[Rfam]
RNA sequence: UACCCGGGAGUGUGUAAUUGGGAAUACACACAGGCAUUGGGUUAACUACCUUUAUCCAAAGGGUGGGUUGUCUUUCCCCGAGGCACCACUUU
Numbered sequence: 001u002a003c004c005c006g007g008g009a010g011u012g013u014g015u016a017a018u019u020g021g022g023a024a025u026a027c028a029c030a031c032a033g034g035c036a037u038u039g040g041g042u043u044a045a046c047u048a049c050c051u052u053u054a055u056c057c058a059a060a061g062g063g064u065g066g067g068u069u070g071u072c073u074u075u076c077c078c079c080g081a082g083g084c085a086c087c088a089c090u091u092u
Base pairs, nucleotide, nucleotide: 002042003041004040005039010031011030012029013028014027015026016025065091066090067089068088069085070084071083072082

The record is a 92-nucleotide RNA, which matches "Rhodo-rpoB RNA" in Rfam. The family's consensus secondary structure is taken from published work. Rfam's curators put it in the seed alignment. The family's RNA type in Rfam is cis-regulatory element.